Source information:
This 88-nucleotide RNA sequence belongs to the Rfam family "c-di-GMP-I riboswitch aptamer". The family's consensus secondary structure is taken from published work. About the family: GEMM was predicted in a large-scale screen for bacterial structured RNA regulatory elements. Genes associated with GEMM are involved in a diverse array of functions, including chemotaxis regulation, signal transduction, secretion and chitin.

RNA sequence: AAUUGACCAGGGCAAACCUGUGCGAAAGCCAGGGACGCAAAGCCACCGAUCUAACGUCUGCAAAGACCAUGACCGCGGGGUUGCCAAG
Numbered sequence: 001a002a003u004u005g006a007c008c009a010g011g012g013c014a015a016a017c018c019u020g021u022g023c024g025a026a027a028g029c030c031a032g033g034g035a036c037g038c039a040a041a042g043c044c045a046c047c048g049a050u051c052u053a054a055c056g057u058c059u060g061c062a063a064a065g066a067c068c069a070u071g072a073c074c075g076c077g078g079g080g081u082u083g084c085c086a087a088g
Base pairs, nucleotide, nucleotide: 012038013037017033018032019031020030022029023028041082042081043080044079046078047077048076050072051071056067057066058065059064